The family of this 102-nucleotide RNA sequence from Paramaledivibacter caminithermalis is "Purine riboswitch aptamer". Pairs were carried over by alignment from the consensus structure, which is taken from published work. The match comes from Rfam's covariance-model search (92 bits). Gene Ontology term of the family: purine nucleobase biosynthetic process. The source organism's lineage runs through Bacteria, Bacillati, Clostridia, Peptostreptococcales and Paramaledivibacter caminithermalis.
[Rfam]
RNA sequence: UCGAAAAAAAGAAUAUCCUCUCAUAUAAUUUCCGUAAUAUGGUCGGAAAGUAUCUACCAGAUAACCGUAAAUUGUCUGACUAUGAGUGAAAUUUGUCUAAGU
Numbered sequence: 001u002c003g004a005a006a007a008a009a010a011g012a013a014u015a016u017c018c019u020c021u022c023a024u025a026u027a028a029u030u031u032c033c034g035u036a037a038u039a040u041g042g043u044c045g046g047a048a049a050g051u052a053u054c055u056a057c058c059a060g061a062u063a064a065c066c067g068u069a070a071a072u073u074g075u076c077u078g079a080c081u082a083u084g085a086g087u088g089a090a091a092u093u094u095g096u097c098u099a100a101g102u
Stems, first nucleotide, its partner, number of pairs: 018088001020086006029049006058078007